[Rfam]
RNA sequence: CGGAAGAACCUUUGUUAAGGAACUCGGCAAAAUAAUCCCGUAAGUUAGCGAGAAGGGAUGCCUAAGAAAUUAGGUCGCAGAGAAUAGGCCCAAGCGACUGUUUACCAAAAACACAAGUAUCUGCUAAAUCGAAAGAUGAAGUAUAGGUGCUGACACCUGCCCGGUGCUGGAAGGUCAAGGGGACUUGUUAGAGCAAUCGAAGCAACGAACUUAAGCCCCAGUAAACGGCGGCCGUAACUAUAACGGUCCUAAGGGUAGCGAAAUUCCUUGUCGGGUAAGUUCCGACCCGCACGAAAGGUGUAACGAUUUGGGCGCUGUCUCAACAAAGGAUCCG
Numbered sequence: 001c002g003g004a005a006g007a008a009c010c011u012u013u014g015u016u017a018a019g020g021a022a023c024u025c026g027g028c029a030a031a032a033u034a035a036u037c038c039c040g041u042a043a044g045u046u047a048g049c050g051a052g053a054a055g056g057g058a059u060g061c062c063u064a065a066g067a068a069a070u071u072a073g074g075u076c077g078c079a080g081a082g083a084a085u086a087g088g089c090c091c092a093a094g095c096g097a098c099u100g101u102u103u104a105c106c107a108a109a110a111a112c113a114c115a116a117g118u119a120u121c122u123g124c125u126a127a128a129u130c131g132a133a134a135g136a137u138g139a140a141g142u143a144u145a146g147g148u149g150c151u152g153a154c155a156c157c158u159g160c161c162c163g164g165u166g167c168u169g170g171a172a173g174g175u176c177a178a179g180g181g182g183a184c185u186u187g188u189u190a191g192a193g194c195a196a197u198c199g200a201a202g203c204a205a206c207g208a209a210c211u212u213a214a215g216c217c218c219c220a221g222u223a224a225a226c227g228g229c230g231g232c233c234g235u236a237a238c239u240a241u242a243a244c245g246g247u248c249c250u251a252a253g254g255g256u257a258g259c260g261a262a263a264u265u266c267c268u269u270g271u272c273g274g275g276u277a278a279g280u281u282c283c284g285a286c287c288c289g290c291a292c293g294a295a296a297g298g299u300g301u302a303a304c305g306a307u308u309u310g311g312g313c314g315c316u317g318u319c320u321c322a323a324c325a326a327a328g329g330a331u332c333c334g
Stems, first nucleotide, its partner, number of pairs: 001334004009329008018320003035059005044049001060075006076080001088313007095305002099113003116151008124141001128137003154300004159229003164226002166222005173217003179211002185205004191198002230248006249254001260287001270286006

Overview
Rfam assigns this 334-nucleotide part of an RNA from Finegoldia magna to the family "Bacterial large subunit ribosomal RNA". Rfam's curators put it in the seed alignment.